[Rfam]
RNA sequence: ACUGAUAAGGGCAAACCUGUCGAAAGUCAGGGACGCAAAGCCUCGGGUCUAAGGCGAAAGCGAUGACGGCCGGGCUGCCAAAG
Numbered sequence: 001a002c003u004g005a006u007a008a009g010g011g012c013a014a015a016c017c018u019g020u021c022g023a024a025a026g027u028c029a030g031g032g033a034c035g036c037a038a039a040g041c042c043u044c045g046g047g048u049c050u051a052a053g054g055c056g057a058a059a060g061c062g063a064u065g066a067c068g069g070c071c072g073g074g075c076u077g078c079c080a081a082a083g
Stems, first nucleotide, its partner, number of pairs: 003080002011036002016031004021026001034069001039076004044072003047067003

The family of this 83-nucleotide sequence from Cohnella candida is "c-di-GMP-I-GGC riboswitch aptamer". The source organism's lineage runs through Bacteria, Bacillati, Bacilli, Caryophanales and Cohnella.